A member of the RNA family "Iron response element I" from Jaculus jaculus, 36 nucleotides long.
RNA sequence: CGGUUUCCUGCUUCAGCAGUGCUUGAAUAGAACCUG
Numbered sequence: 001c002g003g004u005u006u007c008c009u010g011c012u013u014c015a016g017c018a019g020u021g022c023u024u025g026a027a028u029a030g031a032a033c034c035u036g
Stems, first nucleotide, its partner, number of pairs: 001036003005032003010028001012027005017021001
It scores 35 bits against the family's covariance model. On this family, see Hentze et al., Science 1987: "Identification of the iron-responsive element for the translational regulation of human ferritin mRNA". The source organism's lineage runs through Eukaryota, Bilateria, Tetrapoda, Dipodidae and Jaculus.